[Rfam]
RNA sequence: AUACAUCGGGGCAGCGCACUCCUCCUCCCAGCGCACCCCGAAGGAUCGGCGACAUCCUCCUCCUCCCGGUUGCCGAUCGAGACAGACAAUGCCCGCCGGACCUCCUCCCCCGGCGGGCAUUGUCG
Numbered sequence: 001a002u003a004c005a006u007c008g009g010g011g012c013a014g015c016g017c018a019c020u021c022c023u024c025c026u027c028c029c030a031g032c033g034c035a036c037c038c039c040g041a042a043g044g045a046u047c048g049g050c051g052a053c054a055u056c057c058u059c060c061u062c063c064u065c066c067c068g069g070u071u072g073c074c075g076a077u078c079g080a081g082a083c084a085g086a087c088a089a090u091g092c093c094c095g096c097c098g099g100a101c102c103u104c105c106u107c108c109c110c111c112g113g114c115g116g117g118c119a120u121u122g123u124c125g
Stems, first nucleotide, its partner, number of pairs: 007040003011036001014034004044078010089120011
RNA: Alphaproteobacterial ar14
Organism: Rhizobium sp. Root1212